The family of this 126-nucleotide sequence from Myotis davidii is "mir-9193 microRNA precursor family". The match comes from Rfam's covariance-model search (58 bits).
RNA sequence: CUUGGGGGGGGGGGGUCCCUCAGCCUGGCCUGUGCUCUCUCACAGUCUGGGAUGCCUCAGGGGAUGUCAGAAAGCCAGUUUCAGCCCAAUCCUGCAGGCCAGGCCGAGGGACCCCACUGGUGUACG
Numbered sequence: 001c002u003u004g005g006g007g008g009g010g011g012g013g014g015g016u017c018c019c020u021c022a023g024c025c026u027g028g029c030c031u032g033u034g035c036u037c038u039c040u041c042a043c044a045g046u047c048u049g050g051g052a053u054g055c056c057u058c059a060g061g062g063g064a065u066g067u068c069a070g071a072a073a074g075c076c077a078g079u080u081u082c083a084g085c086c087c088a089a090u091c092c093u094g095c096a097g098g099c100c101a102g103g104c105c106g107a108g109g110g111a112c113c114c115c116a117c118u119g120g121u122g123u124a125c126g
Stems, first nucleotide, its partner, number of pairs: 003124002006121001009118002012115010023104003027100008
Dot-bracket structure: ..((.(..((.((((((((((.(((.((((((((..........................................................)))))))).))).)))))))))).))..).))..

Gene Ontology terms of the family: miRNA-mediated post-transcriptional gene silencing and RISC complex. The base pairs follow the family's consensus structure, which was predicted with RNAalifold.